[Rfam]
Shown here is a 129-nucleotide RNA sequence from Loxodonta africana, a member of the family "Small nucleolar RNA SNORA3/SNORA45 family". Gene Ontology terms of the family: nucleolus and RNA processing. Its Rfam clan is "SNORA3 clan". Rfam describes the family as follows. The members of this family belong to the H/ACA class of snoRNAs which are thought to guide the sites of modification of uridines to pseudouridines. This family includes mouse snoMBI-28 and human homologues ACA3 (SNORA3) and ACA3-2 (SNORA45). By type it is an H/ACA-box small nucleolar RNA.
RNA sequence: GUUGAGGCUAGAGUCACACUUGGGUAUUGGUAUUGCCUUAGUGUGCUAGAGUCCUCAAAGAGUAAUUGCUGACCUUAUUCACUGGCUGUAGUCAUUGUGGUACAGUCAGUCACCAGGUUAGCGACAUGC
Numbered sequence: 001g002u003u004g005a006g007g008c009u010a011g012a013g014u015c016a017c018a019c020u021u022g023g024g025u026a027u028u029g030g031u032a033u034u035g036c037c038u039u040a041g042u043g044u045g046c047u048a049g050a051g052u053c054c055u056c057a058a059a060g061a062g063u064a065a066u067u068g069c070u071g072a073c074c075u076u077a078u079u080c081a082c083u084g085g086c087u088g089u090a091g092u093c094a095u096u097g098u099g100g101u102a103c104a105g106u107c108a109g110u111c112a113c114c115a116g117g118u119u120a121g122c123g124a125c126a127u128g129c
Stems, first nucleotide, its partner, number of pairs: 002058005007052003012047002015045006023037004069121007081110005087104004092099001